Rfam assigns this 65-nucleotide RNA to the family "L2-Alphaproteobacteria ribosomal protein leader".
RNA sequence: GGGCACCUUCGGGGGCCUAUAACUUCGCGGGGCUUUGCCCUGCAACGCACAACGGAAGACAGAAA
Numbered sequence: 001g002g003g004c005a006c007c008u009u010c011g012g013g014g015g016c017c018u019a020u021a022a023c024u025u026c027g028c029g030g031g032g033c034u035u036u037g038c039c040c041u042g043c044a045a046c047g048c049a050c051a052a053c054g055g056a057a058g059a060c061a062g063a064a065a
Base pairs, nucleotide, nucleotide: 001018002017003016004015006014007013008012027043028042029041030040031039032038033037
A reference for the family is Eckert and Weinberg (2020), "Discovery of 20 novel ribosomal leader candidates in bacteria and archaea", BMC Microbiol.